Plastid-rps12 3UTR RNA: a 95-nucleotide sequence from Androsace paxiana.
The organism belongs to Androsace, within Eukaryota.
A reference for the family is Richter et al. (2023), "Retrograde signaling in plants: A critical review focusing on the GUN pathway and beyond", Plant Commun.
Rfam classes the family as a cis-regulatory element.
RNA sequence: GGUUUGCAUUGGUGCAAACCCAAUUACCUCAAUUUAAGAUGAAAAAAAAUUCCCCAUUGGUAUUAAAUGGUUAUCCAUUAAGCGGGGACAAUCUU
Numbered sequence: 001g002g003u004u005u006g007c008a009u010u011g012g013u014g015c016a017a018a019c020c021c022a023a024u025u026a027c028c029u030c031a032a033u034u035u036a037a038g039a040u041g042a043a044a045a046a047a048a049a050u051u052c053c054c055c056a057u058u059g060g061u062a063u064u065a066a067a068u069g070g071u072u073a074u075c076c077a078u079u080a081a082g083c084g085g086g087g088a089c090a091a092u093c094u095u
Stems, first nucleotide, its partner, number of pairs: 009023004052087004056078002059075004064070001